Notes
The record is a 77-nucleotide RNA sequence from Pangasianodon hypophthalmus, which matches "mir-30 microRNA precursor family" in Rfam.

[Rfam]
RNA sequence: UUUGUGAUUGUAAACAUCCCCGACUGGAAGCUGUGUGUGAAGUGUUGAGCUUUCAGUUGGAUGUUUGCUGCCACUGA
Numbered sequence: 001u002u003u004g005u006g007a008u009u010g011u012a013a014a015c016a017u018c019c020c021c022g023a024c025u026g027g028a029a030g031c032u033g034u035g036u037g038u039g040a041a042g043u044g045u046u047g048a049g050c051u052u053u054c055a056g057u058u059g060g061a062u063g064u065u066u067g068c069u070g071c072c073a074c075u076g077a
Stems, first nucleotide, its partner, number of pairs: 002076001004074003008070001010068010023057010
Dot-bracket structure: .(.(((.(.((((((((((...((((((((((...............)))))))))).)))))))))).).))).).
About the family: This family consists of the mammalian microRNA (miRNA) precursor mir-30a. Animal miRNAs are transcribed as ~70nt precursors and subsequently processed by the Dicer enzyme to give a ~22nt product. In this case the mature sequence comes from both the 3' (miR-30) and 5' (mir-97-6) arms of the precursor. The extents of the hairpin precursors are not generally known and are estimated based on hairpin prediction. The products are thought to have regulatory roles through complementarity to mRNA. The involvement of Dicer in miRNA processing suggests a relationship with the phenomenon of RNA interference. miRNAs are numbered based on the sequence of the mature RNA.
The source organism's lineage runs through Eukaryota, Ostariophysi, Otophysi, Siluroidei and Pangasianodon.